[Rfam]
RNA sequence: AUCUGCCUGGCUCCCUGGAUGCCACCUAAGAAGCUUUAUCAAAAUUCAAGCUUGAUGACUUCCUACUUGGCGUCAAGGGAGUCAAGCAGGU
Numbered sequence: 001a002u003c004u005g006c007c008u009g010g011c012u013c014c015c016u017g018g019a020u021g022c023c024a025c026c027u028a029a030g031a032a033g034c035u036u037u038a039u040c041a042a043a044a045u046u047c048a049a050g051c052u053u054g055a056u057g058a059c060u061u062c063c064u065a066c067u068u069g070g071c072g073u074c075a076a077g078g079g080a081g082u083c084a085a086g087c088a089g090g091u
Base pairs, nucleotide, nucleotide: 001091002090003089004088005087006086008084009083010082011081012080013079014078016076018074019073020072021071022070023069024068027065028064